Annotation
MIR5070 microRNA precursor family: a 116-nucleotide sequence from Eragrostis curvula. The family is grouped with related families in Rfam's "MIR2863 microRNA precursor clan". Gene Ontology terms of the family: miRNA-mediated post-transcriptional gene silencing and RISC complex. Rfam 15.1 lists 266 matches to the family in 8 species. The family's consensus secondary structure was predicted with RNAalifold. Lineage of the source: Eukaryota > Chloridoideae > Eragrostideae > Eragrostidinae > Eragrostis.
RNA sequence: UAGGGUUGCUUCCAACCCUCUUUAAUUUAACCAAAUGAACUAGAUUUUCAAAAUGAGCUUUCAUUUUAGAAAUCUAGUUCAUUUGGUUGAACUAAAGAGGGUCGGAGGUUACCCUA
Numbered sequence: 001u002a003g004g005g006u007u008g009c010u011u012c013c014a015a016c017c018c019u020c021u022u023u024a025a026u027u028u029a030a031c032c033a034a035a036u037g038a039a040c041u042a043g044a045u046u047u048u049c050a051a052a053a054u055g056a057g058c059u060u061u062c063a064u065u066u067u068a069g070a071a072a073u074c075u076a077g078u079u080c081a082u083u084u085g086g087u088u089g090a091a092c093u094a095a096a097g098a099g100g101g102u103c104g105g106a107g108g109u110u111a112c113c114c115u116a
Stems, first nucleotide, its partner, number of pairs: 002115005008109006015102010026091018